[Rfam]
RNA sequence: GUUCCCUAUGAUACUCUUAAUUCAACCAUGCUAAUACUGAGAUUCUUUGUUGAGUAAGUCUUCCUUUUGAUCUCCUGAGGGUACU
Numbered sequence: 001g002u003u004c005c006c007u008a009u010g011a012u013a014c015u016c017u018u019a020a021u022u023c024a025a026c027c028a029u030g031c032u033a034a035u036a037c038u039g040a041g042a043u044u045c046u047u048u049g050u051u052g053a054g055u056a057a058g059u060c061u062u063c064c065u066u067u068u069g070a071u072c073u074c075c076u077g078a079g080g081g082u083a084c085u
Stems, first nucleotide, its partner, number of pairs: 001084002004081004

Rfam assigns this 85-nucleotide RNA sequence from Tetracentron sinense to the family "Small nucleolar RNA snoR53Y". The organism belongs to Tetracentron, within Eukaryota. Gene Ontology terms of the family: RNA processing and nucleolus. On this family, see Brown et al., RNA 2001: "Multiple snoRNA gene clusters from Arabidopsis". Its Rfam clan is "snoR53 clan". The family's RNA type in Rfam is C/D-box small nucleolar RNA.